[Rfam]
RNA sequence: GUUGCCCCAAUUGUGGGGUUACACUCACGUGUUAAUAGCCUUGUUCUUUGGCCGAACUUGGUGGUUAGUGAAUC
Numbered sequence: 001g002u003u004g005c006c007c008c009a010a011u012u013g014u015g016g017g018g019u020u021a022c023a024c025u026c027a028c029g030u031g032u033u034a035a036u037a038g039c040c041u042u043g044u045u046c047u048u049u050g051g052c053c054g055a056a057c058u059u060g061g062u063g064g065u066u067a068g069u070g071a072a073u074c
Stems, first nucleotide, its partner, number of pairs: 001022002004019006032068005038062003043057004
RNA: L13-Bacteroidia ribosomal protein leader